[Rfam]
RNA sequence: GUCUCGGUGAAGAGCUCUGACCAGGAAGUGCCGUAUGACACUGUAAACAACAGCUGCUUCUCUGCCGCCGCUGCAAGUGUCCAUCCCUGCAUCAUAACCUCUGUGGUUUACUCUGGGAUGGAAUACCCAUUUGCACCGGCGGCUUGAUUCAGCUGUGUGCGUGAUUUGAAACGGGUCUCUGAGGGAU
Numbered sequence: 001g002u003c004u005c006g007g008u009g010a011a012g013a014g015c016u017c018u019g020a021c022c023a024g025g026a027a028g029u030g031c032c033g034u035a036u037g038a039c040a041c042u043g044u045a046a047a048c049a050a051c052a053g054c055u056g057c058u059u060c061u062c063u064g065c066c067g068c069c070g071c072u073g074c075a076a077g078u079g080u081c082c083a084u085c086c087c088u089g090c091a092u093c094a095u096a097a098c099c100u101c102u103g104u105g106g107u108u109u110a111c112u113c114u115g116g117g118a119u120g121g122a123a124u125a126c127c128c129a130u131u132u133g134c135a136c137c138g139g140c141g142g143c144u145u146g147a148u149u150c151a152g153c154u155g156u157g158u159g160c161g162u163g164a165u166u167u168g169a170a171a172c173g174g175g176u177c178u179c180u181g182a183g184g185g186a187u
Stems, first nucleotide, its partner, number of pairs: 001187005071138001072135008080122007091112001094109001096108004